Small nucleolar RNA SNORD34: an 85-nucleotide RNA sequence from Phoenix dactylifera. Gene Ontology terms of the family: RNA processing and nucleolus. Rfam classes the family as a C/D-box small nucleolar RNA. From the family's description: snoRNA U34 is found in intron 5 of the ribosomal protein L13a gene in humans. For this family Rfam cites "The high diversity of snoRNAs in plants: identification and comparative study of 120 snoRNA genes from Oryza sativa" (Chen et al., Nucleic Acids Res, 2003). Clan: SNORD34 clan. Rfam 15.1 lists 1,319 matches to the family in 583 species.
RNA sequence: CAGGCCAUGAUGAUCUGCAGAAUUAUUGCCUACAUUAUUUGGUUAUCUUCUUGUGAUAAAAAUCUGCACUUAUUCUGAGGCCAUG
Numbered sequence: 001c002a003g004g005c006c007a008u009g010a011u012g013a014u015c016u017g018c019a020g021a022a023u024u025a026u027u028g029c030c031u032a033c034a035u036u037a038u039u040u041g042g043u044u045a046u047c048u049u050c051u052u053g054u055g056a057u058a059a060a061a062a063u064c065u066g067c068a069c070u071u072a073u074u075c076u077g078a079g080g081c082c083a084u085g
Stems, first nucleotide, its partner, number of pairs: 001085002003082004